Rfam assigns this 131-nucleotide RNA from Eptatretus burgeri to the family "Small Cajal body specific RNA 8".
Its family is annotated with RNA processing, nucleolus and Cajal body in the Gene Ontology.
Lineage of the source: Eukaryota > Metazoa > Myxini > Myxinidae > Eptatretus.
It scores 94 bits against the family's covariance model.
scaRNAs are a specific class of small nuclear RNAs which localise to the Cajal bodies and guide the modification of RNA polymerase II transcribed spliceosomal RNAs U1, U2, U4, U5 and U12. U92 belong to the H/ACA box class of guide RNAs as it has the predicted hairpin-hinge-hairpin-tail structure, conserved H/ACA-box motifs and is found associated with GAR1.
The family's RNA type in Rfam is small Cajal body RNA.
[Rfam]
RNA sequence: UGGGAGGUAUAAUACAUAUCCUGCCGAAAGUUCAAGCAGGGUAUCACUUGACCUCCCGACAUAAAAGUUGCCUUUUGAUGACCGUGAUGGAUGGAAAGAAACCGUCACGGACAGAUACGAGGCAUACACCU
Number, nucleotide and partner (000 for none) at each position: 001u000002g057003g056004g055005a054006g053007g052008u000009a000010u000011a000012a000013u000014a000015c000016a044017u043018a042019u041020c000021c000022u000023g037024c036025c000026g000027a000028a000029a000030g000031u000032u000033c000034a000035a000036g024037c023038a000039g000040g000041g019042u018043a017044u016045c000046a000047c000048u000049u000050g000051a000052c007053c006054u005055c004056c003057c002058g000059a000060c000061a000062u000063a000064a000065a000066a000067g000068u000069u124070g123071c122072c121073u120074u119075u000076u000077g000078a000079u000080g000081a000082c110083c109084g108085u000086g000087a105088u104089g103090g102091a000092u000093g000094g000095a000096a000097a000098g000099a000100a000101a000102c090103c089104g088105u087106c000107a000108c084109g083110g082111a000112c000113a000114g000115a000116u000117a000118c000119g074120a073121g072122g071123c070124a069125u000126a000127c000128a000129c000130c000131u000